[Rfam]
RNA: Nuclear RNase P
RNA sequence: GCAGCGUCAAUCUUGCAGUAGGGGUGCACAUACAAGGUACUUGUUACCAUUGUUUACAUCACCUCGGGAAGGUCUGAGAUAAGGUCAUUGAACGCUCCAGCCGGGCGAUGCCGUAAUGGCAUGCGCGAGAACCAGAAACAGCCCGAGCGCGUCCUAAAGCCGGGGAUGCUCAGAUGCCUUUUUUUAUAAAGAGGCGAGCGGAGGCGGCGCUUGGCUUGGGAUGGAAACUCGCGUGACCCGCUGUUUUAGUACAAUCUGCGAGCCGCAUCAAUUCCUUUGAUCGGAACUCAAUUCAGACUAAUCUGAUGCUGC
Numbered sequence: 001g002c003a004g005c006g007u008c009a010a011u012c013u014u015g016c017a018g019u020a021g022g023g024g025u026g027c028a029c030a031u032a033c034a035a036g037g038u039a040c041u042u043g044u045u046a047c048c049a050u051u052g053u054u055u056a057c058a059u060c061a062c063c064u065c066g067g068g069a070a071g072g073u074c075u076g077a078g079a080u081a082a083g084g085u086c087a088u089u090g091a092a093c094g095c096u097c098c099a100g101c102c103g104g105g106c107g108a109u110g111c112c113g114u115a116a117u118g119g120c121a122u123g124c125g126c127g128a129g130a131a132c133c134a135g136a137a138a139c140a141g142c143c144c145g146a147g148c149g150c151g152u153c154c155u156a157a158a159g160c161c162g163g164g165g166a167u168g169c170u171c172a173g174a175u176g177c178c179u180u181u182u183u184u185u186a187u188a189a190a191g192a193g194g195c196g197a198g199c200g201g202a203g204g205c206g207g208c209g210c211u212u213g214g215c216u217u218g219g220g221a222u223g224g225a226a227a228c229u230c231g232c233g234u235g236a237c238c239c240g241c242u243g244u245u246u247u248a249g250u251a252c253a254a255u256c257u258g259c260g261a262g263c264c265g266c267a268u269c270a271a272u273u274c275c276u277u278u279g280a281u282c283g284g285a286a287c288u289c290a291a292u293u294c295a296g297a298c299u300a301a302u303c304u305g306a307u308g309c310u311g312c
Stems, first nucleotide, its partner, number of pairs: 001312004007306003012262007021065005036048004074296005083238004093107005108122005123234007142220007263284003267281004